RNA sequence: AAGUGCAACCUGGGGUGCUGCAGAUGCAGCUGAGAUUAGACCCAUAGAACCUGCACUUAGUUAGAACUAGCGAAGGGAAAGUUGUGGAUAGCGCUU
Numbered sequence: 001a002a003g004u005g006c007a008a009c010c011u012g013g014g015g016u017g018c019u020g021c022a023g024a025u026g027c028a029g030c031u032g033a034g035a036u037u038a039g040a041c042c043c044a045u046a047g048a049a050c051c052u053g054c055a056c057u058u059a060g061u062u063a064g065a066a067c068u069a070g071c072g073a074a075g076g077g078a079a080a081g082u083u084g085u086g087g088a089u090a091g092c093g094c095u096u
Stems, first nucleotide, its partner, number of pairs: 006084004011044004016038001017030005050076003057070004

Overview
This 96-nucleotide RNA from Corynebacterium flavescens belongs to the Rfam family "TPP riboswitch aptamer (THI element)". On this family, see Rodionov et al., J Biol Chem 2002: "Comparative genomics of thiamin biosynthesis in procaryotes. New genes and regulatory mechanisms". A search with the family's covariance model found it, with a score of 58 bits. The source organism's lineage runs through Bacteria, Actinomycetota, Actinomycetes, Mycobacteriales and Corynebacterium.